[Rfam]
RNA sequence: AACGCAUCAGAUUUCCUGGUGUAACGAAUUUUCAAGUGCUUCUUGCAGUCGCAAGUUUUCAUCCCGACCCUCACUGGCGUCGGGAUUU
Numbered sequence: 001a002a003c004g005c006a007u008c009a010g011a012u013u014u015c016c017u018g019g020u021g022u023a024a025c026g027a028a029u030u031u032u033c034a035a036g037u038g039c040u041u042c043u044u045g046c047a048g049u050c051g052c053a054a055g056u057u058u059u060c061a062u063c064c065c066g067a068c069c070c071u072c073a074c075u076g077g078c079g080u081c082g083g084g085a086u087u088u
Stems, first nucleotide, its partner, number of pairs: 004022007026058003029054002031051001036046003061086007069077002